RNA sequence: CUCUUAUCCCGAGAUGGUGGAGGGGACAGGCCCUAUGAAACCCGGCAACCUGCCAAAAUAUAAAGUAAUGAUUCCUUUUAAGGGAAUUUUUUGGCGCUGGUGCUAACCUGAUGCAAGGUCAAACCCUUGAACGAUAAGAG
Numbered sequence: 001c002u003c004u005u006a007u008c009c010c011g012a013g014a015u016g017g018u019g020g021a022g023g024g025g026a027c028a029g030g031c032c033c034u035a036u037g038a039a040a041c042c043c044g045g046c047a048a049c050c051u052g053c054c055a056a057a058a059u060a061u062a063a064a065g066u067a068a069u070g071a072u073u074c075c076u077u078u079u080a081a082g083g084g085a086a087u088u089u090u091u092u093g094g095c096g097c098u099g100g101u102g103c104u105a106a107c108c109u110g111a112u113g114c115a116a117g118g119u120c121a122a123a124c125c126c127u128u129g130a131a132c133g134a135u136a137a138g139a140g
Stems, first nucleotide, its partner, number of pairs: 001140008013043001016042003022033003027113002030109001044104004049100002051096008114129005
RNA: SAM riboswitch aptamer (S box leader)